[Rfam]
A member of the RNA family "Histidine operon leader" from Bowmanella dokdonensis, 118 nucleotides long. A search with the family's covariance model found it, with a score of 64 bits. Gene Ontology term of the family: histidine biosynthetic process. The family's RNA type in Rfam is cis-regulatory leader. The family's consensus secondary structure is taken from published work. About the family: At least 6 amino acid operons are known to be regulated by attenuation. In each a leader sequence of 150-200 bp is found upstream of the first gene in the operon. This leader sequence can assume two different secondary structures known as the terminator and the anti-terminator structure. In each case the leader also codes for very short peptide sequence that is rich in the end product amino acid of the operon. The terminator structure is recognised as a termination signal for RNA polymerase and the operon is not transcribed. This structure forms when the cell has an excess of the regulatory amino acid and ribosome movement over the leader transcript is not impeded. When there is a deficiency of the charged tRNA of the regulatory amino acid the ribosome translating the leader peptide stalls and the antiterminator structure can form. This allows RNA polymerase to transcribe the operon. In the Rfam alignment the consensus structure is of the terminator structure. Lineage of the source: Bacteria > Pseudomonadati > Pseudomonadota > Alteromonadaceae > Bowmanella.
Nucleotides: 118
Stems, first nucleotide, its partner, number of pairs: 008040003012035001017034002020031001041065008082113014
Number, partner (000 for none) and nucleotide at each position: 001000c002000c003000a004000u005000c006000a007000c008040c009039a010038u011000c012035a013000u014000c015000a016000c017034c018033c019000g020031g021000c022000a023000u024000a025000a026000c027000c028000u029000u030000u031020c032000a033018g034017g035012u036000u037000c038010g039009u040008g041065c042064u043063g044062g045061a046060a047059g048058g049000u050000u051000a052000u053000u054000g055000u056000u057000a058048c059047c060046u061045u062044c063043c064042a065041g066000u067000g068000g069000a070000a071000u072000c073000u074000u075000g076000a077000u078000u079000g080000u081000u082113a083112a084111g085110a086109c087108c088107c089106c090105u091104g092103g093102a094101a095100g096000g097000u098000u099000a100095c101094u102093u103092c104091c105090g106089g107088g108087g109086g110085u111084u112083u113082u114000u115000c116000g117000u118000u